[Rfam]
RNA: L31-Actinobacteria ribosomal protein leader
RNA sequence: CUGGCUCCGGUUCACGGCCUCCCACCGGGGGAGGACGACCCGGCGGCC
Number, nucleotide and partner (000 for none) at each position: 001c000002u000003g048004g047005c046006u000007c043008c042009g041010g040011u000012u000013c000014a000015c037016g036017g000018c034019c033020u032021c031022c030023c029024a000025c000026c000027g000028g000029g023030g022031g021032a020033g019034g018035a000036c016037g015038a000039c000040c010041c009042g008043g007044c000045g000046g005047c004048c003